RNA sequence: GGCACACUUGCUGCUAUUCAUCCAUCAACGGUGGCCAACGGCGGUCACCGAACCACGACAAAGGCGUCGC
Numbered sequence: 001g002g003c004a005c006a007c008u009u010g011c012u013g014c015u016a017u018u019c020a021u022c023c024a025u026c027a028a029c030g031g032u033g034g035c036c037a038a039c040g041g042c043g044g045u046c047a048c049c050g051a052a053c054c055a056c057g058a059c060a061a062a063g064g065c066g067u068c069g070c
Stems, first nucleotide, its partner, number of pairs: 030049007
Shown here is a 70-nucleotide RNA, a member of the family "narK RNA". By type it is a cis-regulatory element. It is one of the family's seed sequences. The base pairs follow the family's consensus structure, which is taken from published work.